[Rfam]
RNA: Small nucleolar RNA SNORD45
Organism: Microtus ochrogaster
RNA sequence: GGUCAGUGAUGUCUGUCAUGGCAUGUAUUAGCUGAAUGCCAACAUGAUGCUUUUUCAGAAACUGAGACCUU
Numbered sequence: 001g002g003u004c005a006g007u008g009a010u011g012u013c014u015g016u017c018a019u020g021g022c023a024u025g026u027a028u029u030a031g032c033u034g035a036a037u038g039c040c041a042a043c044a045u046g047a048u049g050c051u052u053u054u055u056c057a058g059a060a061a062c063u064g065a066g067a068c069c070u071u
Stems, first nucleotide, its partner, number of pairs: 001069004